[Rfam]
RNA: Molybdenum/Tungsten riboswitch aptamer (Moco RNA motif)
RNA sequence: GCGGUAAGUCACACUUAGCCCUGGCACCUAAGUCUGCGGAUAGGGUGCCCCGGCCGCAACUGUUGUUGCCAGGGUGCAGAAAGAAAUGCCUGCAUCUCCCGUCUCUGGAAAGGUGUACUGGUGCCACAAUU
Dot-bracket structure: ..((......(((((..(((..((((((...(((....)))..))))))..))).(((((....)))))..((((((((..(....)..))))))))((.......))...))))).......))......